[Rfam]
RNA sequence: CAGUUGCCAUAGCUCCGAGCUUUGCUACCUAAGUCUAAUCGUGGAUAAGGUGGUAAAGCCAAGUGGCAAUAAUGCCACGAGGGCGUGAUCAGAAAUGAUGAGGCCUCCCGUGUUUGGAAAGGUGUUUCGUGGCGCAACAA
Numbered sequence: 001c002a003g004u005u006g007c008c009a010u011a012g013c014u015c016c017g018a019g020c021u022u023u024g025c026u027a028c029c030u031a032a033g034u035c036u037a038a039u040c041g042u043g044g045a046u047a048a049g050g051u052g053g054u055a056a057a058g059c060c061a062a063g064u065g066g067c068a069a070u071a072a073u074g075c076c077a078c079g080a081g082g083g084c085g086u087g088a089u090c091a092g093a094a095a096u097g098a099u100g101a102g103g104c105c106u107c108c109c110g111u112g113u114u115u116g117g118a119a120a121g122g123u124g125u126u127u128c129g130u131g132g133c134g135c136a137a138c139a140a
Stems, first nucleotide, its partner, number of pairs: 011126003015122002019059011033046004063078005081106004086101001088099004107117002

Record summary:
Rfam assigns this 140-nucleotide RNA sequence from Vibrio eleionomae to the family "Molybdenum/Tungsten riboswitch aptamer (Moco RNA motif)".